The record is a 70-nucleotide sequence from Pan troglodytes, which matches "mir-8/mir-141/mir-200 microRNA precursor family" in Rfam. Its family is annotated with RISC complex and miRNA-mediated post-transcriptional gene silencing in the Gene Ontology. The family has 164 seed sequences and 2,669 matches in Rfam 15.1. Clan: mir-8 microRNA precursor clan. The base pairs follow the family's consensus structure, which was predicted with RNAalifold. NCBI's taxonomy places the organism under Eukaryota, Bilateria, Dipnotetrapodomorpha, Euarchontoglires, Pan. It is one of the family's seed sequences.
RNA sequence: GCCCUCGUCUUACCCAGCAGUGUUUGGGUGCGGUUGGGAGUCUCUAAUACUGCCGGGUAAUGAUGGAGGC
Numbered sequence: 001g002c003c004c005u006c007g008u009c010u011u012a013c014c015c016a017g018c019a020g021u022g023u024u025u026g027g028g029u030g031c032g033g034u035u036g037g038g039a040g041u042c043u044c045u046a047a048u049a050c051u052g053c054c055g056g057g058u059a060a061u062g063a064u065g066g067a068g069g070c
Base pairs, nucleotide, nucleotide: 002069003068005066006065007064008063009062010060011059012058013057014056015055017053018052019051020050021049022048024047025046026045027044028043